[Rfam]
RNA sequence: GGGUUACUCCUCUGCGCUUACGCGCUUGGUUGAUAAAGAUUCGCACCUCUAUCAAACCGGGUAACCCCACCCUUUGGCAAGGUCCUACUGUCAGAUCAAAUCGGAACUACUACAAUUAAGCAGCAAAGCUUACUUGACUACAGCUCUUAAUACUUUGAUCUGCUCAUCGAGUUGCGUCAGAUCAUUCGUUA
Numbered sequence: 001g002g003g004u005u006a007c008u009c010c011u012c013u014g015c016g017c018u019u020a021c022g023c024g025c026u027u028g029g030u031u032g033a034u035a036a037a038g039a040u041u042c043g044c045a046c047c048u049c050u051a052u053c054a055a056a057c058c059g060g061g062u063a064a065c066c067c068c069a070c071c072c073u074u075u076g077g078c079a080a081g082g083u084c085c086u087a088c089u090g091u092c093a094g095a096u097c098a099a100a101u102c103g104g105a106a107c108u109a110c111u112a113c114a115a116u117u118a119a120g121c122a123g124c125a126a127a128g129c130u131u132a133c134u135u136g137a138c139u140a141c142a143g144c145u146c147u148u149a150a151u152a153c154u155u156u157g158a159u160c161u162g163c164u165c166a167u168c169g170a171g172u173u174g175c176g177u178c179a180g181a182u183c184a185u186u187c188g189u190u191a
Base pairs, nucleotide, nucleotide: 001067002066003065004064005063006062007061009060010059014025015024016023017022028058029057030056031055032053033052034051035050037048038047076145077144081139082138086137090107091106092104094102095101096100109134111132112131114130164191166189168188169187170186171185172184
RNA: Proteobacterial sRNA psRNA2